The family of this 73-nucleotide sequence from Ophiophagus hannah is "mir-456 microRNA precursor family". Taxonomically the source falls in Ophiophagus (Eukaryota, Metazoa, Sarcopterygii, Unidentata). It is one of the family's seed sequences. The family's consensus secondary structure was predicted with RNAalifold.

RNA sequence: GUGUGAGCAGGCAUCUUCUCAGCCUACAUGUGGAUUCUUAAAUCUGCAGGCUGGUUAGAUGGUUGUCAUACAU
Numbered sequence: 001g002u003g004u005g006a007g008c009a010g011g012c013a014u015c016u017u018c019u020c021a022g023c024c025u026a027c028a029u030g031u032g033g034a035u036u037c038u039u040a041a042a043u044c045u046g047c048a049g050g051c052u053g054g055u056u057a058g059a060u061g062g063u064u065g066u067c068a069u070a071c072a073u
Stems, first nucleotide, its partner, number of pairs: 007066004012061005019054007030047006